[Rfam]
RNA sequence: GGUUGGGCGUAAGCUUUCAAGACAUACUUUCCAAGGGUGAGGAAAG
Number, nucleotide and partner (000 for none) at each position: 001g000002g000003u020004u019005g018006g015007g014008c013009g000010u000011a000012a000013g008014c007015u006016u000017u000018c005019a004020a003021g000022a000023c000024a000025u000026a000027c046028u045029u044030u043031c042032c041033a000034a000035g000036g000037g000038u000039g000040a000041g032042g031043a030044a029045a028046g027
A member of the RNA family "Na+ riboswitch aptamer (DUF1646)" from Enterococcus saccharolyticus, 46 nucleotides long. For this family Rfam cites "Na(+) riboswitches regulate genes for diverse physiological processes in bacteria" (White et al., Nat Chem Biol, 2022). The source organism's lineage runs through Bacteria, Bacilli, Enterococcaceae, Enterococcus saccharolyticus and Enterococcus saccharolyticus subsp. saccharolyticus. The family's consensus secondary structure is taken from published work.